RNA sequence: UUGGUUUAUAAGCAGAUUCCCGAAAGGAUUCACAUUUAUGUGUGGAUAUGCCUUGUAACCGUUAAAAGCAAUUUUGCAAACUUUAGGGGGAAUAUUAAAAAUG
Numbered sequence: 001u002u003g004g005u006u007u008a009u010a011a012g013c014a015g016a017u018u019c020c021c022g023a024a025a026g027g028a029u030u031c032a033c034a035u036u037u038a039u040g041u042g043u044g045g046a047u048a049u050g051c052c053u054u055g056u057a058a059c060c061g062u063u064a065a066a067a068g069c070a071a072u073u074u075u076g077c078a079a080a081c082u083u084u085a086g087g088g089g090g091a092a093u094a095u096u097a098a099a100a101a102u103g
Stems, first nucleotide, its partner, number of pairs: 017092005024054004029046005059087002